[Rfam]
RNA sequence: AUUCGGGGUUUAUGGUUAAGAGCCCCUUUCUGAUUUAAAAUAUCAGAAAAAAAACUGGAUAAAUUGCAAGAAAAACUUUAAUAAAAGUCAAUUUGCAGCCAAGUACGUUAAGUGAAAUUUAUUUUUUAUUAUAAAGUGUAACGUAAAGGUUCAACGACUAAUGGGUGAGUAUUCACAACGAUAAUCCCAACACGAACAUCCAGCAGUAGUCAGUAUUCCCAUGGGAAUGUUUUCUAAUGAUGACAUAGUCUGAACAGUAGUGUGAACUACUG
Numbered sequence: 001a002u003u004c005g006g007g008g009u010u011u012a013u014g015g016u017u018a019a020g021a022g023c024c025c026c027u028u029u030c031u032g033a034u035u036u037a038a039a040a041u042a043u044c045a046g047a048a049a050a051a052a053a054a055c056u057g058g059a060u061a062a063a064u065u066g067c068a069a070g071a072a073a074a075a076c077u078u079u080a081a082u083a084a085a086a087g088u089c090a091a092u093u094u095g096c097a098g099c100c101a102a103g104u105a106c107g108u109u110a111a112g113u114g115a116a117a118u119u120u121a122u123u124u125u126u127u128a129u130u131a132u133a134a135a136g137u138g139u140a141a142c143g144u145a146a147a148g149g150u151u152c153a154a155c156g157a158c159u160a161a162u163g164g165g166u167g168a169g170u171a172u173u174c175a176c177a178a179c180g181a182u183a184a185u186c187c188c189a190a191c192a193c194g195a196a197c198a199u200c201c202a203g204c205a206g207u208a209g210u211c212a213g214u215a216u217u218c219c220c221a222u223g224g225g226a227a228u229g230u231u232u233u234c235u236a237a238u239g240a241u242g243a244c245a246u247a248g249u250c251u252g253a254a255c256a257g258u259a260g261u262g263u264g265a266a267c268u269a270c271u272g
Stems, first nucleotide, its partner, number of pairs: 005027004010022002013019001054214005060208002065097006075088005098150002110139001112137002154251001156250005216237002257270005
Rfam assigns this 272-nucleotide sequence from Rhizoctonia solani to the family "Group I catalytic intron".
Taxonomically the source falls in Rhizoctonia solani AG-3 (Eukaryota, Dikarya, Basidiomycota, Ceratobasidiaceae).
Rfam describes the family as follows. Group I catalytic introns are large self-splicing ribozymes. They catalyse their own excision from mRNA, tRNA and rRNA precursors in a wide range of organisms. The core secondary structure consists of 9 paired regions (P1-P9). These fold to essentially two domains - the P4-P6 domain (formed from the stacking of P5, P4, P6 and P6a helices) and the P3-P9 domain (formed from the P8, P3, P7 and P9 helices).
For this family Rfam cites "Self-splicing of group I introns" (Cech, Annu Rev Biochem, 1990).
Pairs were carried over by alignment from the consensus structure, which is taken from published work.